The family of this 100-nucleotide RNA from Octodon degus is "mir-658 microRNA precursor family".
RNA sequence: GCUCGGUUGCCGUGGUUGCAGGCCCGGCCCGCCCGCUUGCUCGUUGACAGCGAGACUUACAGCGGAGGGAAGUGGGUCCGUUGGUCUGCCGGGAACGAGG
Numbered sequence: 001g002c003u004c005g006g007u008u009g010c011c012g013u014g015g016u017u018g019c020a021g022g023c024c025c026g027g028c029c030c031g032c033c034c035g036c037u038u039g040c041u042c043g044u045u046g047a048c049a050g051c052g053a054g055a056c057u058u059a060c061a062g063c064g065g066a067g068g069g070a071a072g073u074g075g076g077u078c079c080g081u082u083g084g085u086c087u088g089c090c091g092g093g094a095a096c097g098a099g100g
Base pairs, nucleotide, nucleotide: 002099003098004097005096007095008094010092011091012090014086015085016084018081019080021078022077023076024075025072028069029068030067033065034064035063036062037061039056040054042052043051044050045049
Lineage of the source: Eukaryota > Eumetazoa > Deuterostomia > Teleostomi > Octodon. Pairs were carried over by alignment from the consensus structure, which was predicted with RNAalifold.